[Rfam]
RNA sequence: GUGCGUUAAACUUAUGAAUAAGGAAAAUAACUAUUCCGAGUGAGUGAAGCCCGAAUCCUCACUGCUAACGCGAGGCGAAUUUUUGAGUCGGUAAAGGUUGCCCCUAAAGUGACCCGCUUACUUUGCGGGAUGCCUGGGAGUGGCGAUUUGCCUG
Numbered sequence: 001g002u003g004c005g006u007u008a009a010a011c012u013u014a015u016g017a018a019u020a021a022g023g024a025a026a027a028u029a030a031c032u033a034u035u036c037c038g039a040g041u042g043a044g045u046g047a048a049g050c051c052c053g054a055a056u057c058c059u060c061a062c063u064g065c066u067a068a069c070g071c072g073a074g075g076c077g078a079a080u081u082u083u084u085g086a087g088u089c090g091g092u093a094a095a096g097g098u099u100g101c102c103c104c105u106a107a108a109g110u111g112a113c114c115c116g117c118u119u120a121c122u123u124u125g126c127g128g129g130a131u132g133c134c135u136g137g138g139a140g141u142g143g144c145g146a147u148u149u150g151c152c153u154g
Stems, first nucleotide, its partner, number of pairs: 004023001006021003033056004038051001058074003062070001088154001090152003095149007104138002107135001109133003113129005
This 154-nucleotide RNA from Cavia porcellus belongs to the Rfam family "U12 minor spliceosomal RNA". Rfam 15.1 lists 2,106 matches to the family in 1,170 species. Pairs were carried over by alignment from the consensus structure. The match comes from Rfam's covariance-model search (96 bits).